[Rfam]
RNA: Tryptophan operon leader
RNA sequence: GCAGGUUGGUGGCGCUCUUCCCUUUCGCGGGCGGAGUAAUCACGCAUAGCUGUUAUCAGAACAUGCAGAUAUCCCAAAGCCCGCUCAUCAGCGGGUUUUUUUAU
Numbered sequence: 001g002c003a004g005g006u007u008g009g010u011g012g013c014g015c016u017c018u019u020c021c022c023u024u025u026c027g028c029g030g031g032c033g034g035a036g037u038a039a040u041c042a043c044g045c046a047u048a049g050c051u052g053u054u055a056u057c058a059g060a061a062c063a064u065g066c067a068g069a070u071a072u073c074c075c076a077a078a079g080c081c082c083g084c085u086c087a088u089c090a091g092c093g094g095g096u097u098u099u100u101u102u103a104u
Stems, first nucleotide, its partner, number of pairs: 009043004014037005020031003078097008
Dot-bracket structure: ........((((.(((((.(((......))).)))))..))))..................................((((((((....)))))))).......